RNA: S15-Flavobacteria ribosomal protein leader
RNA sequence: UACUUUUGCGCCCGUAUUACGAUAGUCGUAGUACAUACAUAACAAUCAUUUACACAAAUAUUAGCAUG
Dot-bracket structure: .............((((((((.....))))))))..................................
Numbered sequence: 001u002a003c004u005u006u007u008g009c010g011c012c013c014g015u016a017u018u019a020c021g022a023u024a025g026u027c028g029u030a031g032u033a034c035a036u037a038c039a040u041a042a043c044a045a046u047c048a049u050u051u052a053c054a055c056a057a058a059u060a061u062u063a064g065c066a067u068g
Stems, first nucleotide, its partner, number of pairs: 014034008